[Rfam]
RNA sequence: CCAACCGAAGCGUCUCGCAGGGCGUCCUCUGUGGAGAUAGCAUUUCCUGUAGAGCACUGAUCUUUUGGUAUGGGGGAGAAAUCCCUCGCCAUCAUUUCAAACUCCGAAUGGAUAUGCAUCGUAGAAGCGGGGAGACGGGUUCGUGUGACGUAAGGUUCACGACCGAAAGGGGUUUAACCCAGACUGAAGUUAAGGUCCCCAAAUUUUUGCUAAGUGUCAAGCCAAAGGGCGUGUUCGCGCCAAGACAGCAGGGAGGUAAGCUUAGAAGCAGCUAUCCUUUAAAAAGUGUGUAACAACUUACCUGCCGAGCGUGGGCGCCCCGAAAACGGACGGGGCUAAAGCAAAGUACCGAUACUUCAGAUACUUGUUAAUUUACAAGUCAUGGUAGGUUGGCGUAGUGAUUGGGUCGAAGCAGGGCAGUGAUGUCCUGUGGACCGAUUUCUAUUGCAGAU
Numbered sequence: 001c002c003a004a005c006c007g008a009a010g011c012g013u014c015u016c017g018c019a020g021g022g023c024g025u026c027c028u029c030u031g032u033g034g035a036g037a038u039a040g041c042a043u044u045u046c047c048u049g050u051a052g053a054g055c056a057c058u059g060a061u062c063u064u065u066u067g068g069u070a071u072g073g074g075g076g077a078g079a080a081a082u083c084c085c086u087c088g089c090c091a092u093c094a095u096u097u098c099a100a101a102c103u104c105c106g107a108a109u110g111g112a113u114a115u116g117c118a119u120c121g122u123a124g125a126a127g128c129g130g131g132g133a134g135a136c137g138g139g140u141u142c143g144u145g146u147g148a149c150g151u152a153a154g155g156u157u158c159a160c161g162a163c164c165g166a167a168a169g170g171g172g173u174u175u176a177a178c179c180c181a182g183a184c185u186g187a188a189g190u191u192a193a194g195g196u197c198c199c200c201a202a203a204u205u206u207u208u209g210c211u212a213a214g215u216g217u218c219a220a221g222c223c224a225a226a227g228g229g230c231g232u233g234u235u236c237g238c239g240c241c242a243a244g245a246c247a248g249c250a251g252g253g254a255g256g257u258a259a260g261c262u263u264a265g266a267a268g269c270a271g272c273u274a275u276c277c278u279u280u281a282a283a284a285a286g287u288g289u290g291u292a293a294c295a296a297c298u299u300a301c302c303u304g305c306c307g308a309g310c311g312u313g314g315g316c317g318c319c320c321c322g323a324a325a326a327c328g329g330a331c332g333g334g335g336c337u338a339a340a341g342c343a344a345a346g347u348a349c350c351g352a353u354a355c356u357u358c359a360g361a362u363a364c365u366u367g368u369u370a371a372u373u374u375a376c377a378a379g380u381c382a383u384g385g386u387a388g389g390u391u392g393g394c395g396u397a398g399u400g401a402u403u404g405g406g407u408c409g410a411a412g413c414a415g416g417g418c419a420g421u422g423a424u425g426u427c428c429u430g431u432g433g434a435c436c437g438a439u440u441u442c443u444a445u446u447g448c449a450g451a452u
Stems, first nucleotide, its partner, number of pairs: 001393006011024005026134001027132006036120003040117004045112003052105001053103002059098002063094001066091003072087006138164002141162005147157002169180003184360007194350003203347001205346006227321003231318010248305005254278003259273003279283001284299001288297002361383002363380005394447001396444003400440006412431008
Background: The record is a 452-nucleotide part of an RNA from uncultured marine crenarchaeote SAT1000-49-D2, which matches "Archaeal large subunit ribosomal RNA" in Rfam. Rfam links the family to the GO terms ribosome and structural constituent of ribosome. Rfam's curators put it in the seed alignment. Lineage of the source: Archaea > Thermoproteati > Nitrososphaerota > Nitrososphaeria > Nitrosopumilales. Clan: LSU clan.